[Rfam]
The record is an 87-nucleotide sequence from marine gamma proteobacterium HTCC2080, which matches "tRNA" in Rfam. The match comes from Rfam's covariance-model search (60 bits). Its Rfam clan is "tRNA clan". It is annotated as a transfer RNA. The base pairs follow the family's consensus structure, which is taken from published work. Its family is annotated with triplet codon-amino acid adaptor activity in the Gene Ontology.
Nucleotides: 087
Base pairs, nucleotide, nucleotide: 001086002085003084004083005082006081007080010026011025012024028044029043030042031041032040063079064078065077066076067075
Number, partner (000 for none) and nucleotide at each position: 001086g002085g003084u004083g005082g006081g007080c008000u009000g010026g011025c012024u013000g014000a015000g016000u017000g018000g019000u020000c021000g022000a023000a024012a025011g026010c027000g028044g029043c030042g031041g032040u033000c034000u035000u036000g037000a038000a039000a040032a041031c042030c043029g044028u045000u046000g047000a048000g049000g050000g051000u052000u053000u054000a055000u056000c057000c058000c059000c060000u061000c062000c063079g064078u065077a066076g067075g068000u069000u070000c071000g072000a073000a074000u075067c076066c077065u078064a079063c080007g081006c082005c083004c084003a085002c086001c087000g